[Rfam]
This 264-nucleotide part of an RNA from Micromonas commoda belongs to the Rfam family "Eukaryotic large subunit ribosomal RNA". The source organism's lineage runs through Eukaryota, Mamiellophyceae, Mamiellales, Mamiellaceae and Micromonas.
RNA sequence: GAGUCUAACAUGUGUGCGAGUCGGUGGGUGACAAACCCACGAGGCGCAAGUAACCUGACUGAGCAAAUUCGACCGACCAUGAUCUUCUGUGAAAGGUUUGAGUGCGAGCAUACAUGCUGGGACCCGAAAGAUGGUGAACUAUGCCUGAGCAGGGCGAAGCCAGAGGAAACUCUGGUGGAGGCUCGUAGCGAUACUGACGUGCAAAUCGUUCGUCGGACUUGGGUAUAGGGGCGAAAGACUAAUCGAACCAUCUAGUAGCUGGUU
Numbered sequence: 001g002a003g004u005c006u007a008a009c010a011u012g013u014g015u016g017c018g019a020g021u022c023g024g025u026g027g028g029u030g031a032c033a034a035a036c037c038c039a040c041g042a043g044g045c046g047c048a049a050g051u052a053a054c055c056u057g058a059c060u061g062a063g064c065a066a067a068u069u070c071g072a073c074c075g076a077c078c079a080u081g082a083u084c085u086u087c088u089g090u091g092a093a094a095g096g097u098u099u100g101a102g103u104g105c106g107a108g109c110a111u112a113c114a115u116g117c118u119g120g121g122a123c124c125c126g127a128a129a130g131a132u133g134g135u136g137a138a139c140u141a142u143g144c145c146u147g148a149g150c151a152g153g154g155c156g157a158a159g160c161c162a163g164a165g166g167a168a169a170c171u172c173u174g175g176u177g178g179a180g181g182c183u184c185g186u187a188g189c190g191a192u193a194c195u196g197a198c199g200u201g202c203a204a205a206u207c208g209u210u211c212g213u214c215g216g217a218c219u220u221g222g223g224u225a226u227a228g229g230g231g232c233g234a235a236a237g238a239c240u241a242a243u244c245g246a247a248c249c250a251u252c253u254a255g256u257a258g259c260u261g262g263u264u
Stems, first nucleotide, its partner, number of pairs: 005120003009116009020045003025039005049056002061070002072103002074100003077096002084089001123262002126259001130252006139228011150216001152184004159176007188213004193209002196207002230240002